[Rfam]
RNA sequence: UCCCCCUCAACGCUGCGUUUCUAUGCUACAAACAGAUCCGCGCUGGUUCGCCCACGCUCAUCAGAUCCUCGGAUCGUCAUUUUGCAUAUGAGAAAUUCGGAGUACUCUUCAAACCCACCUUCCUCCCAUUCCCCUCAGGGCGUGGUGACAGGUCUGCCCGCGAGGGUUAGGCGCGAUAUCGCGUCUGCAAUUGGCAUCAGAAAAGCAGGGCAAGUCUCUCCUCGUAUACUGUCUCCGCACAGGGAUGGGAAGGUGGAGAGUGCUUGUUCCUAUGGGAGAGCCGUUGCGAAGAUUGUGUGUGCUGAGGCAUGACACUUAAGUGCAAUACGCAGCGUGCCUUUCUCUCGGUCACUUGUGGCUGGGGGAUUGGGCACAAUUCGAUUCCGAUUACUCUGUUGGGGA
Numbered sequence: 001u002c003c004c005c006c007u008c009a010a011c012g013c014u015g016c017g018u019u020u021c022u023a024u025g026c027u028a029c030a031a032a033c034a035g036a037u038c039c040g041c042g043c044u045g046g047u048u049c050g051c052c053c054a055c056g057c058u059c060a061u062c063a064g065a066u067c068c069u070c071g072g073a074u075c076g077u078c079a080u081u082u083u084g085c086a087u088a089u090g091a092g093a094a095a096u097u098c099g100g101a102g103u104a105c106u107c108u109u110c111a112a113a114c115c116c117a118c119c120u121u122c123c124u125c126c127c128a129u130u131c132c133c134c135u136c137a138g139g140g141c142g143u144g145g146u147g148a149c150a151g152g153u154c155u156g157c158c159c160g161c162g163a164g165g166g167u168u169a170g171g172c173g174c175g176a177u178a179u180c181g182c183g184u185c186u187g188c189a190a191u192u193g194g195c196a197u198c199a200g201a202a203a204a205g206c207a208g209g210g211c212a213a214g215u216c217u218c219u220c221c222u223c224g225u226a227u228a229c230u231g232u233c234u235c236c237g238c239a240c241a242g243g244g245a246u247g248g249g250a251a252g253g254u255g256g257a258g259a260g261u262g263c264u265u266g267u268u269c270c271u272a273u274g275g276g277a278g279a280g281c282c283g284u285u286g287c288g289a290a291g292a293u294u295g296u297g298u299g300u301g302c303u304g305a306g307g308c309a310u311g312a313c314a315c316u317u318a319a320g321u322g323c324a325a326u327a328c329g330c331a332g333c334g335u336g337c338c339u340u341u342c343u344c345u346c347g348g349u350c351a352c353u354u355g356u357g358g359c360u361g362g363g364g365g366a367u368u369g370g371g372c373a374c375a376a377u378u379c380g381a382u383u384c385c386g387a388u389u390a391c392u393c394u395g396u397u398g399g400g401g402a
Stems, first nucleotide, its partner, number of pairs: 001402004008395002012333007022088004035075006098386005107291004156167004169186006187287004193282003208271003334374006